[Rfam]
RNA: Mammalian CPEB3 ribozyme
Organism: Alligator sinensis
RNA sequence: AGAGGUCUCAAGCUCGAGGCCGUAGCAGAAGUGCUCACGUCACAGCCCUGUCAGACUCCAGCAAACCUGCGAAUUCUGCU
Numbered sequence: 001a002g003a004g005g006u007c008u009c010a011a012g013c014u015c016g017a018g019g020c021c022g023u024a025g026c027a028g029a030a031g032u033g034c035u036c037a038c039g040u041c042a043c044a045g046c047c048c049u050g051u052c053a054g055a056c057u058c059c060a061g062c063a064a065a066c067c068u069g070c071g072a073a074u075u076c077u078g079c080u
Stems, first nucleotide, its partner, number of pairs: 016048001018047003024080007031043003052069003057064001
Dot-bracket structure: ...............[.[[[...((((((((((.......))).]]]]...(((..(......)..)))....)))))))